The family of this 170-nucleotide sequence from Erwinia tracheiphila is "sok antitoxin (CssrC)". The family's RNA type in Rfam is antitoxin RNA. A search with the family's covariance model found it, with a score of 104 bits. NCBI's taxonomy places the organism under Bacteria, Pseudomonadati, Gammaproteobacteria, Enterobacterales, Erwinia. About the family: Also identified in Shigella as CssrC.
[Rfam]
RNA sequence: GGGUGCUUGAGGCUUUCUGCCUUAAGCAUUAGCCGAUGGCAGAAAGAGAAAAGCCCCGGAAACAUUAUGCGUCUUGCUGGACGCUUAACAUUAACCGAGGCCACUUCUAAUGCUGAACACAUUCAGAAUAGCCUCUUACUGGCCUCCGGGUCAAGGAGAAGCAGGCUAUG
Numbered sequence: 001g002g003g004u005g006c007u008u009g010a011g012g013c014u015u016u017c018u019g020c021c022u023u024a025a026g027c028a029u030u031a032g033c034c035g036a037u038g039g040c041a042g043a044a045a046g047a048g049a050a051a052a053g054c055c056c057c058g059g060a061a062a063c064a065u066u067a068u069g070c071g072u073c074u075u076g077c078u079g080g081a082c083g084c085u086u087a088a089c090a091u092u093a094a095c096c097g098a099g100g101c102c103a104c105u106u107c108u109a110a111u112g113c114u115g116a117a118c119a120c121a122u123u124c125a126g127a128a129u130a131g132c133c134u135c136u137u138a139c140u141g142g143c144c145u146c147c148g149g150g151u152c153a154a155g156g157a158g159a160a161g162c163a164g165g166c167u168a169u170g
Stems, first nucleotide, its partner, number of pairs: 001057003005054004013046009023036001026033002058096002061092002065088002097135005105128004109123004139161002144156001